Annotation
This 36-nucleotide RNA belongs to the Rfam family "abiF RNA". About the family: Actinobacteria, Bacteroidetes, Clostridia, Proteobacteria, one Clostridia phage. It is annotated as a small RNA. The family's consensus secondary structure is taken from published work. The sequence is in the family's curated seed alignment.
[Rfam]
RNA sequence: CCAGUCACGCCUCUCAACGAUGCGAACCCGACUGGU
Numbered sequence: 001c002c003a004g005u006c007a008c009g010c011c012u013c014u015c016a017a018c019g020a021u022g023c024g025a026a027c028c029c030g031a032c033u034g035g036u
Base pairs, nucleotide, nucleotide: 001035002034003033004032005031006030008024009023010022